[Rfam]
RNA sequence: GGAUGUGAGGGCAGUCUGGCUGCAACAGUCACUCUGUUUAUAGCAAGGGUUGAUUUGGCUGGUCUGGCUGGCUAGGCAGGUGUCCCCUUCCUCGCUCACUACUCCAUGUGCAUCCUUCCCAAAGCUGCACACAGUCAAAGUGGAUGACUUUCCCUGAUAGAGAUGUACUGUUCAUGGGUCAAGAGUAUAUGGUAGCUGUUCUCCCCUGCUAGAACCUACAAACAAGCUCAAGGUCCAGUUGUAGGAGAACAUAGGGUAGUCAGGCUUCUAAGACUGCAGACACAUCAAGGUGAGAAGCUGCACUGAGCAGUCUGCCAUUGCUU
Numbered sequence: 001g002g003a004u005g006u007g008a009g010g011g012c013a014g015u016c017u018g019g020c021u022g023c024a025a026c027a028g029u030c031a032c033u034c035u036g037u038u039u040a041u042a043g044c045a046a047g048g049g050u051u052g053a054u055u056u057g058g059c060u061g062g063u064c065u066g067g068c069u070g071g072c073u074a075g076g077c078a079g080g081u082g083u084c085c086c087c088u089u090c091c092u093c094g095c096u097c098a099c100u101a102c103u104c105c106a107u108g109u110g111c112a113u114c115c116u117u118c119c120c121a122a123a124g125c126u127g128c129a130c131a132c133a134g135u136c137a138a139a140g141u142g143g144a145u146g147a148c149u150u151u152c153c154c155u156g157a158u159a160g161a162g163a164u165g166u167a168c169u170g171u172u173c174a175u176g177g178g179u180c181a182a183g184a185g186u187a188u189a190u191g192g193u194a195g196c197u198g199u200u201c202u203c204c205c206c207u208g209c210u211a212g213a214a215c216c217u218a219c220a221a222a223c224a225a226g227c228u229c230a231a232g233g234u235c236c237a238g239u240u241g242u243a244g245g246a247g248a249a250c251a252u253a254g255g256g257u258a259g260u261c262a263g264g265c266u267u268c269u270a271a272g273a274c275u276g277c278a279g280a281c282a283c284a285u286c287a288a289g290g291u292g293a294g295a296a297g298c299u300g301c302a303c304u305g306a307g308c309a310g311u312c313u314g315c316c317a318u319u320g321c322u323u
Base pairs, nucleotide, nucleotide: 001105002104003103005099006098007097008096009095011093014089018087019086025083026082027081028077029076030075032071033070034067035066036065040063041062043059044058114165116162117161118160119134124132135157136156137155142153143152144151195265196264197263201259202258204256205255206254207253208252216247217246219244222242223241224240225239288323289322290321292318294316297311298310299309300308301307
Notes: Rfam assigns this 323-nucleotide sequence from Probosciger aterrimus to the family "7SK RNA".